Vault RNA: a 93-nucleotide sequence from Trichonephila inaurata. The source organism's lineage runs through Eukaryota, Opisthokonta, Entelegynae, Orbiculariae and Trichonephila inaurata. This family of RNAs are found as part of the enigmatic vault ribonucleoprotein complex. The complex consists of a major vault protein (MVP), two minor vault proteins (VPARP and TEP1), and several small untranslated RNA molecules. It has been suggested that the vault complex is involved in drug resistance.

RNA sequence: GACCAGGCUUAGCUGAGUGGUUAACUCGGUCACUGUUGGUGCAGUGAGUGACAUUAUAAGGGUUCGAAUCACUGGCGCUGUCCUGUGUCAUUU
Numbered sequence: 001g002a003c004c005a006g007g008c009u010u011a012g013c014u015g016a017g018u019g020g021u022u023a024a025c026u027c028g029g030u031c032a033c034u035g036u037u038g039g040u041g042c043a044g045u046g047a048g049u050g051a052c053a054u055u056a057u058a059a060g061g062g063u064u065c066g067a068a069u070c071a072c073u074g075g076c077g078c079u080g081u082c083c084u085g086u087g088u089c090a091u092u093u
Base pairs, nucleotide, nucleotide: 002088003087004085005084006083007082012076013075014074015073017072018071019070020069026067027066028065029064